[Rfam]
RNA sequence: GCAUGGUGGUGGUUGGGGACAGCCCCAUGGUGGUGGAGGCUGG
Dot-bracket structure: .(((((..................)))))..............

The family of this 43-nucleotide RNA sequence is "Prion pseudoknot".
It is one of the family's seed sequences.
It is annotated as a cis-regulatory element.
This family represents a predicted pseudoknot structure found in prion protein mRNA. It has been suggested that the family has a possible effect in prion protein translation.
The base pairs follow the family's consensus structure, which is taken from published work.